Small nucleolar RNA snR161: a 164-nucleotide RNA from Saccharomyces arboricola. For this family Rfam cites "Genome-wide searching for pseudouridylation guide snoRNAs: analysis of the Saccharomyces cerevisiae genome" (Schattner et al., Nucleic Acids Res, 2004). Rfam links the family to the GO terms RNA processing and nucleolus. Pairs were carried over by alignment from the consensus structure, which was predicted with WAR. The match comes from Rfam's covariance-model search (145 bits).
RNA sequence: AUAAAAUACAAACCCCAGUAUUUUUGGCUGCCCGCGAAUCACCCACUUGUAGGUAGUCUCUCUAAGCUGGCAGAUAGAUGUUACAAUGAACCACUUAAGUUCCGUUGUGAAGGUUUUUGUCCAUUUGGGCUGUAUUUCAUGACACUACUGUAGUUCAAACACAC
Numbered sequence: 001a002u003a004a005a006a007u008a009c010a011a012a013c014c015c016c017a018g019u020a021u022u023u024u025u026g027g028c029u030g031c032c033c034g035c036g037a038a039u040c041a042c043c044c045a046c047u048u049g050u051a052g053g054u055a056g057u058c059u060c061u062c063u064a065a066g067c068u069g070g071c072a073g074a075u076a077g078a079u080g081u082u083a084c085a086a087u088g089a090a091c092c093a094c095u096u097a098a099g100u101u102c103c104g105u106u107g108u109g110a111a112g113g114u115u116u117u118u119g120u121c122c123a124u125u126u127g128g129g130c131u132g133u134a135u136u137u138c139a140u141g142a143c144a145c146u147a148c149u150g151u152a153g154u155u156c157a158a159a160c161a162c163a164c
Stems, first nucleotide, its partner, number of pairs: 015070005027057006034050003087157005093151002104143007112136003118132002121129002